[Rfam]
RNA sequence: CCUCCUGCAGGGCGAGAAGACCCCGUGGAGCUUCACCGCAGCCUGACGCUGACUCUCGAGCGGAGCCGCGUAGUGUAGGUGGGAGCCAUUGAGUUACCUCCUUCGGGAGGUAAUGAGGCGACAAUGAAACACCACCCGUCUCUGCUUGAGGGCCUAACCCGAAAGGGGACAACGUUAGGUGGGCGGUUCGGCUGGGGCGGCACGCCUGCGAAAAAGUAACACAGGCGCCCAAAGGUCGGCUCAGGUGGGUCAGAAACCCGCCGUAGAGCGUAAGGGCAAAAGCCGGCCUGACCGGAUCCUUGAUGGCAAGGGAUCCGGACGGGAAACCGCGGCCUAGCGCACGCUCGUGCCCCUCUUGGUGGGGGCCGGGCACGACGGAAAAGUUACCCCGGGGAUAACAGAGUCGUCGCGGGCGAGAGCUCCUAUCGACCCCGCGGUUUGCUUCAUCGAUGUCGGCUUUUCCCAUCCUGGGAGUGCAGCAGCUUCCAAGGGUGGGGCUGCCCGCCCAUUAAAGGGGAACGUGAGCUGGGUUCAGACCGUCGUGAGACAGGUCGGUCUCUACCCGCAGGAGGUGCA
Dot-bracket structure: ((((((((.(((.((......((((.(((((((.((((...(((((((..(.(((((((((((((.((.........(((((..(((.........(((((....)))))......)))............))))))).))))))))))))).)...(((....))).....)))))))....))))..((((.....))).)(((((.............)))))..((....((((((((.((((((.......))))))...))((......))....))))))....(((((((((.........))))))))).(.(....).).))..........(((((.(.((((.......)))))))))).........)))))..))))))........(((.((((((((...((.......))...)))))))..))))..........(((((((((((..((..(((((......)))))....))..((((.....))))......)))))..)..)))).).....(((((((....))).))))....))..)))))))))))....